[Rfam]
Nucleotides: 097
Stems, first nucleotide, its partner, number of pairs: 004091005010083005015075001018073004024066005034059004042051003
Number, partner (000 for none) and nucleotide at each position: 001000u002000a003000u004091c005090g006089g007088u008087c009000c010083c011082u012081u013080c014079g015075c016000a017000a018073c019072g020071c021070a022000a023000a024066g025065c026064a027063g028062c029000g030000a031000a032000c033000c034059c035058c036057g037056u038000c039000a040000g041000a042051u043050c044049c045000g046000g047000a048000a049044g050043g051042a052000a053000g054000c055000a056037g057036c058035g059034g060000u061000a062028g063027u064026u065025g066024u067000c068000c069000a070021u071020g072019c073018g074000g075015g076000u077000g078000c079014c080013g081012a082011g083010g084000u085000g086000u087008g088007g089006c090005u091004g092000c093000u094000a095000u096000a097000a
Shown here is a 97-nucleotide RNA sequence from Candidatus Rickettsiella isopodorum, a member of the family "Bacterial small signal recognition particle RNA". Taxonomically the source falls in Rickettsiella (Bacteria, Pseudomonadati, Pseudomonadota, Legionellales). A search with the family's covariance model found it, with a score of 70 bits. The family's consensus secondary structure is taken from published work.